[Rfam]
RNA sequence: UGGCUACAAAAUAACUUAUUUUGUAGCCACUUUGAGUUACGAUAAUUACUAUAUUAAUUUACAAGAUUAUAGUAACUCUUUACUAAGUGGUUUACUAUAACAUUACGGUAAAUAUCCCCAUUUGUUAUAGUAACCCAAUUAUCGUAAAUAUGUAUACAUAUUAUCGUAAAUUAGUAUAUAAAACUAUCAUAAAUAGAGGUGGCUACAGAGACUACUUGCUCGUUA
Numbered sequence: 001u002g003g004c005u006a007c008a009a010a011a012u013a014a015c016u017u018a019u020u021u022u023g024u025a026g027c028c029a030c031u032u033u034g035a036g037u038u039a040c041g042a043u044a045a046u047u048a049c050u051a052u053a054u055u056a057a058u059u060u061a062c063a064a065g066a067u068u069a070u071a072g073u074a075a076c077u078c079u080u081u082a083c084u085a086a087g088u089g090g091u092u093u094a095c096u097a098u099a100a101c102a103u104u105a106c107g108g109u110a111a112a113u114a115u116c117c118c119c120a121u122u123u124g125u126u127a128u129a130g131u132a133a134c135c136c137a138a139u140u141a142u143c144g145u146a147a148a149u150a151u152g153u154a155u156a157c158a159u160a161u162u163a164u165c166g167u168a169a170a171u172u173a174g175u176a177u178a179u180a181a182a183a184c185u186a187u188c189a190u191a192a193a194u195a196g197a198g199g200u201g202g203c204u205a206c207a208g209a210g211a212c213u214a215c216u217u218g219c220u221c222g223u224u225a
Stems, first nucleotide, its partner, number of pairs: 001225004006220001009217002012214002016210001020209014037192003041188004046183002050178013065165003069161003072157003079148005087142006093132010107117002

This 225-nucleotide sequence from Sorghum bicolor belongs to the Rfam family "MIR6217 microRNA precursor family". The family has 2 seed sequences and 2,266 matches in Rfam 15.1. Lineage of the source: Eukaryota > Embryophyta > Euphyllophyta > Andropogonodae > Sorghum. A search with the family's covariance model found it, with a score of 183 bits.